[Rfam]
RNA sequence: AACGUCAGCGCGAUUUGAUGACAUGGCAACAAAUCGCGCCCUUUAGUACGCGAUUUAUUGCCACAUCAGCAAAUCGCGCUAACGUGG
Numbered sequence: 001a002a003c004g005u006c007a008g009c010g011c012g013a014u015u016u017g018a019u020g021a022c023a024u025g026g027c028a029a030c031a032a033a034u035c036g037c038g039c040c041c042u043u044u045a046g047u048a049c050g051c052g053a054u055u056u057a058u059u060g061c062c063a064c065a066u067c068a069g070c071a072a073a074u075c076g077c078g079c080u081a082a083c084g085u086g087g
Stems, first nucleotide, its partner, number of pairs: 002085004007080011019068003024063006031056008041046001

A member of the RNA family "MIR7486 microRNA precursor family" from Gossypium lobatum, 87 nucleotides long. Taxonomically the source falls in Gossypium (Eukaryota, Viridiplantae, Streptophytina, rosids).